RNA sequence: AAACUUACCUGGCUGGGAAGUUCUCGCGAUCAACAAGGCGGGACCUCCACGGCGAGGCUCGACCAUUGCACUUUGGGUUCGGCUGACCCGUGUGGCUAUCUCGAGUUGAGAUGAGCCAACAGCACAAUUUUUGCGUUUGGGGUUGCGUUCGCGCUCCCCCGGC
Numbered sequence: 001a002a003a004c005u006u007a008c009c010u011g012g013c014u015g016g017g018a019a020g021u022u023c024u025c026g027c028g029a030u031c032a033a034c035a036a037g038g039c040g041g042g043a044c045c046u047c048c049a050c051g052g053c054g055a056g057g058c059u060c061g062a063c064c065a066u067u068g069c070a071c072u073u074u075g076g077g078u079u080c081g082g083c084u085g086a087c088c089c090g091u092g093u094g095g096c097u098a099u100c101u102c103g104a105g106u107u108g109a110g111a112u113g114a115g116c117c118a119a120c121a122g123c124a125c126a127a128u129u130u131u132u133g134c135g136u137u138u139g140g141g142g143u144u145g146c147g148u149u150c151g152c153g154c155u156c157c158c159c160c161g162g163c
Base pairs, nucleotide, nucleotide: 012123013122014121015120016048017047018046020044021043023042024041025040026039027038049091050090051089052088054087056084057083058082061079062078063076064075093118094117095116096115097113098112100110101109137162138161139160140159141158142157145154146153147152

Source information
A member of the RNA family "U1 spliceosomal RNA" from Litomosoides sigmodontis, 163 nucleotides long. It is annotated as a spliceosomal small nuclear RNA. The family's consensus secondary structure is taken from published work. Gene Ontology terms of the family: U1 snRNP, mRNA 5'-splice site recognition and pre-mRNA 5'-splice site binding. For this family Rfam cites "The uRNA database" (Zwieb, Nucleic Acids Res, 1997). Rfam's curators write: U1 is a small nuclear RNA (snRNA) component of the spliceosome (involved in pre-mRNA splicing). Its 5' end forms complementary base pairs with the 5' splice junction, thus defining the 5' donor site of an intron. There are significant differences in sequence and secondary structure between metazoan and yeast U1 snRNAs, the latter being much longer (568 nucleotides as compared to 164 nucleotides in human). Nevertheless, secondary structure predictions suggest that all U1 snRNAs share a 'common core' consisting of helices I, II, the proximal region of III, and IV. This family does not contain the larger yeast sequences. A search with the family's covariance model found it, with a score of 127 bits.